[Rfam]
RNA: U2 spliceosomal RNA
Organism: Panagrolaimus superbus
RNA sequence: CUUUCUUUACCGAUACUAAUCUAAUUCCAUUUUUAGUAGUAUCUGUUCUUAUAGUUUUAACCAACUAUACGGUGCUUAUUAGUACCACAGUGGUUAAUUAAUUUUUGGGAUCUGGUUAAAUGCGGAAGCUUGCUUCCCUUUGACCGCGGGUCGACCUGGUUUUGCACAUACCUCCAGGAGGUAUGCCAACUCUGA
Numbered sequence: 001c002u003u004u005c006u007u008u009a010c011c012g013a014u015a016c017u018a019a020u021c022u023a024a025u026u027c028c029a030u031u032u033u034u035a036g037u038a039g040u041a042u043c044u045g046u047u048c049u050u051a052u053a054g055u056u057u058u059a060a061c062c063a064a065c066u067a068u069a070c071g072g073u074g075c076u077u078a079u080u081a082g083u084a085c086c087a088c089a090g091u092g093g094u095u096a097a098u099u100a101a102u103u104u105u106u107g108g109g110a111u112c113u114g115g116u117u118a119a120a121u122g123c124g125g126a127a128g129c130u131u132g133c134u135u136c137c138c139u140u141u142g143a144c145c146g147c148g149g150g151u152c153g154a155c156c157u158g159g160u161u162u163u164g165c166a167c168a169u170a171c172c173u174c175c176a177g178g179a180g181g182u183a184u185g186c187c188a189a190c191u192c193u194g195a
Stems, first nucleotide, its partner, number of pairs: 003029001050069006071086006114145007125136004149187003155178005